[Rfam]
RNA sequence: CGAGAGAACUCUGGCCAAGGAACUCGGCAAAAUAACCCCGUAACUUCGGAAGAAGGGGUGCUCUUAUGGGUGAAGGAUUUACUCUCUAAGCCCACGAGAGCCGCAGAGAAAUGAGGGUGGCGACUGUUUACUAAAAACAUAGGUCUCUGCUAAGUCGCAAGACGACGUAUAGGGACUGACGCCUGCCCGGUGCCGGAAGGUUAAGAGGAGAGGUCAGCGCAAGCGAAGCUUUGAAUCGAAGCCCCGGUAAACGGCGGCCGUAACUAUAACGGUCCUAAGGUAGCGAAAUUCCUUGUCGGGUAAGUUCCGACCUGCACGAAUGGCGUAACGAUCUCCCUACUGUCUCGGCCAGAGACUCG
Numbered sequence: 001c002g003a004g005a006g007a008a009c010u011c012u013g014g015c016c017a018a019g020g021a022a023c024u025c026g027g028c029a030a031a032a033u034a035a036c037c038c039c040g041u042a043a044c045u046u047c048g049g050a051a052g053a054a055g056g057g058g059u060g061c062u063c064u065u066a067u068g069g070g071u072g073a074a075g076g077a078u079u080u081a082c083u084c085u086c087u088a089a090g091c092c093c094a095c096g097a098g099a100g101c102c103g104c105a106g107a108g109a110a111a112u113g114a115g116g117g118u119g120g121c122g123a124c125u126g127u128u129u130a131c132u133a134a135a136a137a138c139a140u141a142g143g144u145c146u147c148u149g150c151u152a153a154g155u156c157g158c159a160a161g162a163c164g165a166c167g168u169a170u171a172g173g174g175a176c177u178g179a180c181g182c183c184u185g186c187c188c189g190g191u192g193c194c195g196g197a198a199g200g201u202u203a204a205g206a207g208g209a210g211a212g213g214u215c216a217g218c219g220c221a222a223g224c225g226a227a228g229c230u231u232u233g234a235a236u237c238g239a240a241g242c243c244c245c246g247g248u249a250a251a252c253g254g255c256g257g258c259c260g261u262a263a264c265u266a267u268a269a270c271g272g273u274c275c276u277a278a279g280g281u282a283g284c285g286a287a288a289u290u291c292c293u294u295g296u297c298g299g300g301u302a303a304g305u306u307c308c309g310a311c312c313u314g315c316a317c318g319a320a321u322g323g324c325g326u327a328a329c330g331a332u333c334u335c336c337c338u339a340c341u342g343u344c345u346c347g348g349c350c351a352g353a354g355a356c357u358c359g
Stems, first nucleotide, its partner, number of pairs: 001359004009354008018345003035059005044049001060101006068084006102106001114338004119333002121330002125139003142177008150167001154163003180325004185255003190252002192248005199243003205237002210232005217224002256274006275279001285312001295311006